This 73-nucleotide sequence from Alligator mississippiensis belongs to the Rfam family "Mammalian CPEB3 ribozyme".
RNA sequence: AUGCCAGCCAUAGGGGUCAUAGCAGAAGCACUCACAUUACCACCCCUGUCGGGUAAUACCUGUGAAUUCUGCU
Numbered sequence: 001a002u003g004c005c006a007g008c009c010a011u012a013g014g015g016g017u018c019a020u021a022g023c024a025g026a027a028g029c030a031c032u033c034a035c036a037u038u039a040c041c042a043c044c045c046c047u048g049u050c051g052g053g054u055a056a057u058a059c060c061u062g063u064g065a066a067u068u069c070u071g072c073u
Stems, first nucleotide, its partner, number of pairs: 013046005021073007028040001030038001050062005